[Rfam]
RNA: S10-Clostridia ribosomal protein leader
RNA sequence: UGACUGCUAUGAUGUGGAAGGUUGCUGACACACCCGGCCGCUUUGCCAUGGCGAGUGUGUGGGAAAUUUUCACGGAGUAUGUCUAUUUUAAAAUAGGCGAAAA
Numbered sequence: 001u002g003a004c005u006g007c008u009a010u011g012a013u014g015u016g017g018a019a020g021g022u023u024g025c026u027g028a029c030a031c032a033c034c035c036g037g038c039c040g041c042u043u044u045g046c047c048a049u050g051g052c053g054a055g056u057g058u059g060u061g062g063g064a065a066a067u068u069u070u071c072a073c074g075g076a077g078u079a080u081g082u083c084u085a086u087u088u089u090a091a092a093a094u095a096g097g098c099g100a101a102a103a
Stems, first nucleotide, its partner, number of pairs: 014073003018070004025062002080102001082100002087097003